[Rfam]
RNA sequence: GUGUCCCCUAGAGUUCCCCUUACCACUUCACUGGGGAUCUUCUCUAAUGAAUGCCUACGUACUGAAGUGUUUGGGGGAACUCCUGGUGCCAU
Numbered sequence: 001g002u003g004u005c006c007c008c009u010a011g012a013g014u015u016c017c018c019c020u021u022a023c024c025a026c027u028u029c030a031c032u033g034g035g036g037a038u039c040u041u042c043u044c045u046a047a048u049g050a051a052u053g054c055c056u057a058c059g060u061a062c063u064g065a066a067g068u069g070u071u072u073g074g075g076g077g078a079a080c081u082c083c084u085g086g087u088g089c090c091a092u
Base pairs, nucleotide, nucleotide: 005088007086008085011082012081013080014079015078016077017076018075019074020073022072024069025068026067027066028065029064030063032061033060035058
Rfam assigns this 92-nucleotide sequence from Vitis vinifera to the family "mir-395 microRNA precursor family". Rfam's curators write: mir-395 was identified in both Arabidopsis thaliana and Oryza sativa computationally and was later experimentally verified. mir-395 is thought to target mRNAs coding for ATP sulphurylases. Gene Ontology terms of the family: RISC complex and miRNA-mediated post-transcriptional gene silencing. The family's consensus secondary structure was predicted with PFOLD.